[Rfam]
Nucleotides: 119
Base pairs, nucleotide, nucleotide: 003035004034005033006032007031008030009029010028024052025051026050027049043074044073045072046071047070060103061102062101063100078097079096080095081094088115089114090113091112092111093110
Number, partner (000 for none) and nucleotide at each position: 001000c002000a003035c004034u005033c006032g007031g008030c009029u010028g011000g012000a013000g014000g015000g016000u017000c018000a019000u020000u021000a022000c023000c024052g025051c026050a027049g028010c029009g030008g031007u032006c033005g034004a035003g036000g037000a038000a039000g040000u041000a042000c043074c044073c045072c046071c047070u048000a049027c050026u051025g052024c053000g054000g055000g056000a057000a058000a059000g060103a061102c062101a063100u064000g065000g066000a067000a068000g069000c070047a071046g072045g073044g074043g075000u076000a077000a078097g079096c080095g081094u082000g083000g084000c085000g086000a087000a088115g089114c090113u091112a092111g093110c094081g095080c096079g097078c098000g099000a100063a101062u102061g103060u104000c105000g106000a107000a108000c109000g110093g111092c112091u113090g114089g115088c116000g117000g118000g119000u